[Rfam]
The record is a 139-nucleotide sequence from Populus deltoides, which matches "MIR480 microRNA precursor family" in Rfam.
For this family Rfam cites "Novel and mechanical stress-responsive MicroRNAs in Populus trichocarpa that are absent from Arabidopsis" (Lu et al., Plant Cell, 2005).
The source organism's lineage runs through Eukaryota, Streptophyta, Malpighiales, Saliceae and Populus.
Pairs were carried over by alignment from the consensus structure, which was predicted with WAR.
RNA sequence: UAAUUUAUAUGAAGCAUAUUCUCAACUAGCUAUGACAUACCCAUACCUGACUGCUCAAAUCAUCCGUUCACGUAGGUCCGAUAACAUCAUUUAGUUUUUAAGAGAGAACUUCCGAUUGGAAUCUAUGUAAAACUAUGAU
Numbered sequence: 001u002a003a004u005u006u007a008u009a010u011g012a013a014g015c016a017u018a019u020u021c022u023c024a025a026c027u028a029g030c031u032a033u034g035a036c037a038u039a040c041c042c043a044u045a046c047c048u049g050a051c052u053g054c055u056c057a058a059a060u061c062a063u064c065c066g067u068u069c070a071c072g073u074a075g076g077u078c079c080g081a082u083a084a085c086a087u088c089a090u091u092u093a094g095u096u097u098u099u100a101a102g103a104g105a106g107a108a109c110u111u112c113c114g115a116u117u118g119g120a121a122u123c124u125a126u127g128u129a130a131a132a133c134u135a136u137g138a139u
Stems, first nucleotide, its partner, number of pairs: 004137001006135002008132001012128001014126001018122002023118003028110002031107001